[Rfam]
RNA sequence: GGGACGGGCCUUUCAGGCAUCCUCUCCUAAUGACUUAAGGGCUGGUUCUCGCGAACCGGCCCCUUUUUUUGUCCGCU
Numbered sequence: 001g002g003g004a005c006g007g008g009c010c011u012u013u014c015a016g017g018c019a020u021c022c023u024c025u026c027c028u029a030a031u032g033a034c035u036u037a038a039g040g041g042c043u044g045g046u047u048c049u050c051g052c053g054a055a056c057c058g059g060c061c062c063c064u065u066u067u068u069u070u071g072u073c074c075g076c077u
Base pairs, nucleotide, nucleotide: 008018009017010016011015039062040061041060042059043058044057045056046055047054